Shown here is a 107-nucleotide sequence from Pontibacter qinzhouensis, a member of the family "SAM riboswitch aptamer (S box leader)".
NCBI's taxonomy places the organism under Bacteria, Pseudomonadati, Bacteroidota, Hymenobacteraceae, Pontibacter.
It scores 77 bits against the family's covariance model.
The base pairs follow the family's consensus structure, which is taken from published work.
RNA sequence: UUCUUAUCAAGAAAGACUGAGGGACAGGGCCCGUCGACGUCUUAGCAACCUGGGUAAUGCCGAGGUGCUAACUCCCUCCUGGUAACCAUAGCCAGGGAAGAUAAGAC
Dot-bracket structure: .(((((((....(((((...(((..[[[[)))......)))))((((.(((((......))).))))))...(]]]]((((((.......))))))..)))))))).